[Rfam]
RNA: Small nucleolar RNA R11/Z151
Organism: Ananas comosus
RNA sequence: GGGCUUGUGAUGAUCGAUCUCAAAAAGAUCUUAGCGGAUUUCAGUGAGGCGUAUAACGCGUCAAUGAUCGAAAUCUUUGUUGUUACACACACUGAAGCCU
Numbered sequence: 001g002g003g004c005u006u007g008u009g010a011u012g013a014u015c016g017a018u019c020u021c022a023a024a025a026a027g028a029u030c031u032u033a034g035c036g037g038a039u040u041u042c043a044g045u046g047a048g049g050c051g052u053a054u055a056a057c058g059c060g061u062c063a064a065u066g067a068u069c070g071a072a073a074u075c076u077u078u079g080u081u082g083u084u085a086c087a088c089a090c091a092c093u094g095a096a097g098c099c100u
Base pairs, nucleotide, nucleotide: 001100002099003098004097005096